[Rfam]
RNA sequence: CCUGGGGCGUUGCCCCAGGCUGUAUUAAUUUGCCCCUUCGGGGCG
Numbered sequence: 001c002c003u004g005g006g007g008c009g010u011u012g013c014c015c016c017a018g019g020c021u022g023u024a025u026u027a028a029u030u031u032g033c034c035c036c037u038u039c040g041g042g043g044c045g
Stems, first nucleotide, its partner, number of pairs: 001019008032044005
A member of the RNA family "Acido-Lenti-1 RNA" from Desulfonema ishimotonii, 45 nucleotides long.
The family's RNA type in Rfam is small RNA.
The source organism's lineage runs through Bacteria, Pseudomonadati, Thermodesulfobacteriota, Desulfobacteria and Desulfonema.